[Rfam]
RNA sequence: CCGGCAGUUCAAAAGUGCUCACAGUGCAGGUAGUGACCUCUGAACUACGGCAGCGUGAGCGCUUCAAGCACUGCCGG
Number, nucleotide and partner (000 for none) at each position: 001c000002c000003g000004g074005c073006a072007g071008u000009u000010c068011a000012a000013a064014a063015g062016u061017g060018c059019u058020c057021a056022c055023a000024g000025u052026g051027c050028a000029g000030g048031u047032a046033g045034u000035g000036a000037c000038c000039u000040c000041u000042g000043a000044a000045c033046u032047a031048c030049g000050g027051c026052a025053g000054c000055g022056u021057g020058a019059g018060c017061g016062c015063u014064u013065c000066a000067a000068g010069c000070a000071c007072u006073g005074c004075c000076g000077g000
RNA: mir-17 microRNA precursor family
Organism: Kryptolebias marmoratus